This 46-nucleotide RNA from Saccharothrix ecbatanensis belongs to the Rfam family "L31-Actinobacteria ribosomal protein leader".
By type it is a cis-regulatory leader.
Pairs were carried over by alignment from the consensus structure, which is taken from published work.
NCBI's taxonomy places the organism under Bacteria, Bacillati, Actinomycetota, Actinomycetes, Saccharothrix.
[Rfam]
RNA sequence: CCGGCUCCGGUUCACCUCGAAGAACAGCAACGAGGACCCGGCGGCC
Numbered sequence: 001c002c003g004g005c006u007c008c009g010g011u012u013c014a015c016c017u018c019g020a021a022g023a024a025c026a027g028c029a030a031c032g033a034g035g036a037c038c039c040g041g042c043g044g045c046c
Base pairs, nucleotide, nucleotide: 003046004045005044007041008040009039010038015035016034017033018032019031022028

The literature on the family includes a 2020 paper in BMC Microbiol by Eckert and Weinberg, "Discovery of 20 novel ribosomal leader candidates in bacteria and archaea".